Small nucleolar RNA Z107/R87: a 110-nucleotide sequence from Phaseolus vulgaris. On this family, see Barneche et al., J Mol Biol 2001: "Identification of 66 box C/D snoRNAs in Arabidopsis thaliana: extensive gene duplications generated multiple isoforms predicting new ribosomal RNA 2'-O-methylation sites". The match comes from Rfam's covariance-model search (98 bits). NCBI's taxonomy places the organism under Eukaryota, Streptophytina, Papilionoideae, Phaseoleae, Phaseolus. The base pairs follow the family's consensus structure, which was predicted with RNAfold.
RNA sequence: GAUCACCGUGAUGACUCUAUAAAAUUCAAGCUCAACAGACCGGAAUGCAGAGCAUUCUCUCUUCCGAGAGAUAGCGUUGCGUGUCGACAACCCCGCUGAACUGAGUGAUC
Numbered sequence: 001g002a003u004c005a006c007c008g009u010g011a012u013g014a015c016u017c018u019a020u021a022a023a024a025u026u027c028a029a030g031c032u033c034a035a036c037a038g039a040c041c042g043g044a045a046u047g048c049a050g051a052g053c054a055u056u057c058u059c060u061c062u063u064c065c066g067a068g069a070g071a072u073a074g075c076g077u078u079g080c081g082u083g084u085c086g087a088c089a090a091c092c093c094c095g096c097u098g099a100a101c102u103g104a105g106u107g108a109u110c
Stems, first nucleotide, its partner, number of pairs: 001110006